Background: Shown here is a 278-nucleotide sequence, a member of the family "Early nodulin 40". It is annotated as a non-coding RNA gene. A reference for the family is Gultyaev and Roussis (2007), "Identification of conserved secondary structures and expansion segments in enod40 RNAs reveals new enod40 homologues in plants", Nucleic Acids Res. It is one of the family's seed sequences. Rfam links the family to the GO term nodulation. The family has 35 seed sequences and 341 matches in Rfam 15.1.
RNA sequence: AUGGAACUCUCUUGGCAAAAAUCCAUCCAUGGUUCUUGAAUAAGCACGCAUCAUUAACAGUGUGAGAGGGUCCUCAUCCCUCACACUCCACCACUUCCAACAGUUUGUUUAGGCUUAGCUAUUGGCUUCUCUAAUCACCAAGGGAUAUGCAUACAAAAAACAUUCUCUAUGACUAACAGAAGCAUAUAAGCAUUCUCCAUUGGAGCAAAGGCUUUCUUUGGCUACAGCCUAGGCAAGCCGGCAAGUCACAAAAAGGCUUGGACUCCAUUAGGGGUCCU
Numbered sequence: 001a002u003g004g005a006a007c008u009c010u011c012u013u014g015g016c017a018a019a020a021a022u023c024c025a026u027c028c029a030u031g032g033u034u035c036u037u038g039a040a041u042a043a044g045c046a047c048g049c050a051u052c053a054u055u056a057a058c059a060g061u062g063u064g065a066g067a068g069g070g071u072c073c074u075c076a077u078c079c080c081u082c083a084c085a086c087u088c089c090a091c092c093a094c095u096u097c098c099a100a101c102a103g104u105u106u107g108u109u110u111a112g113g114c115u116u117a118g119c120u121a122u123u124g125g126c127u128u129c130u131c132u133a134a135u136c137a138c139c140a141a142g143g144g145a146u147a148u149g150c151a152u153a154c155a156a157a158a159a160a161c162a163u164u165c166u167c168u169a170u171g172a173c174u175a176a177c178a179g180a181a182g183c184a185u186a187u188a189a190g191c192a193u194u195c196u197c198c199a200u201u202g203g204a205g206c207a208a209a210g211g212c213u214u215u216c217u218u219u220g221g222c223u224a225c226a227g228c229c230u231a232g233g234c235a236a237g238c239c240g241g242c243a244a245g246u247c248a249c250a251a252a253a254a255g256g257c258u259u260g261g262a263c264u265c266c267a268u269u270a271g272g273g274g275u276c277c278u
Stems, first nucleotide, its partner, number of pairs: 062091002103238006122226001261276005